[Rfam]
This 110-nucleotide RNA sequence from Actinomadura viridilutea belongs to the Rfam family "Glycine riboswitch aptamer". Rfam links the family to the GO term glycine biosynthetic process. NCBI's taxonomy places the organism under Bacteria, Bacillati, Streptosporangiales, Thermomonosporaceae, Actinomadura. A search with the family's covariance model found it, with a score of 42 bits. This family represents the bacterial glycine riboswitch. Glycine riboswitches usually consist of two metabolite-binding aptamers domains with similar structures in tandem. The aptamers cooperatively bind glycine to regulate the expression of downstream genes. In Bacillus subtilis, this riboswitch is found upstream of the gcvT operon which controls glycine degradation.
RNA sequence: GCACCUCUGGAAAGCAGGCGCGCCUCCCGGCGACGGGCGGGAGCGCCUCACCGAAGGGGAAACCCCGUUCCGCGGGCGAAGCUCUCAGGUGCCGAGACAGAGGGGGAGAG
Numbered sequence: 001g002c003a004c005c006u007c008u009g010g011a012a013a014g015c016a017g018g019c020g021c022g023c024c025u026c027c028c029g030g031c032g033a034c035g036g037g038c039g040g041g042a043g044c045g046c047c048u049c050a051c052c053g054a055a056g057g058g059g060a061a062a063c064c065c066c067g068u069u070c071c072g073c074g075g076g077c078g079a080a081g082c083u084c085u086c087a088g089g090u091g092c093c094g095a096g097a098c099a100g101a102g103g104g105g106g107a108g109a110g
Base pairs, nucleotide, nucleotide: 002105004103005102006101007100008099009098016048017047018046019045020044021043050090051089052088053086054085057084058083059082064076065075066074